[Rfam]
RNA sequence: GAUGAAUUUAAUCCAAUCCAUUAACUUAAUUUUUAUGUAGUGGAUGAAUUGGAUGGAUUUUUUGGUGGAUGGAUUGGAUGAAUUUUGUC
Numbered sequence: 001g002a003u004g005a006a007u008u009u010a011a012u013c014c015a016a017u018c019c020a021u022u023a024a025c026u027u028a029a030u031u032u033u034u035a036u037g038u039a040g041u042g043g044a045u046g047a048a049u050u051g052g053a054u055g056g057a058u059u060u061u062u063u064g065g066u067g068g069a070u071g072g073a074u075u076g077g078a079u080g081a082a083u084u085u086u087g088u089c
Stems, first nucleotide, its partner, number of pairs: 004085005011079012025064001028061002
Rfam assigns this 89-nucleotide RNA sequence from Lathyrus oleraceus to the family "MIR5291 microRNA precursor family". A search with the family's covariance model found it, with a score of 56 bits. Rfam links the family to the GO terms miRNA-mediated post-transcriptional gene silencing and RISC complex.